[Rfam]
RNA sequence: GUGAAGUUAAUCACAAACAAACCUAUACCCCUUUGUUUGAUCGUGAAGAAUUUCUCCCAUCCCCUUUGUUCGUAUAUUAUAGAUAGGAAAGCCCAGCAAAUUCGCGAUUUGCUGGGCUUUCCUU
Numbered sequence: 001g002u003g004a005a006g007u008u009a010a011u012c013a014c015a016a017a018c019a020a021a022c023c024u025a026u027a028c029c030c031c032u033u034u035g036u037u038u039g040a041u042c043g044u045g046a047a048g049a050a051u052u053u054c055u056c057c058c059a060u061c062c063c064c065u066u067u068g069u070u071c072g073u074a075u076a077u078u079a080u081a082g083a084u085a086g087g088a089a090a091g092c093c094c095a096g097c098a099a100a101u102u103c104g105c106g107a108u109u110u111g112c113u114g115g116g117c118u119u120u121c122c123u124u
Base pairs, nucleotide, nucleotide: 003054004053005052006051007050008049011046012045013044014043018039019038020037021036022035025034070083074080087121088120089119090118091117092116093115094114095113096112097111098110099109100108101107102106
A member of the RNA family "RNA Staph. aureus E (RoxS)" from Peribacillus loiseleuriae, 124 nucleotides long. Gene Ontology term of the family: regulation of translational initiation. The match comes from Rfam's covariance-model search (95 bits). Taxonomically the source falls in Peribacillus (Bacteria, Bacilli, Caryophanales, Bacillaceae). It was shown to be regulated by the presence of nitric oxide (NO). In Bacillus subtilis it controls expression of genes with functions related to oxidative stress and oxidation-reduction reactions and it was renamed RoxS (for related to oxidative stress).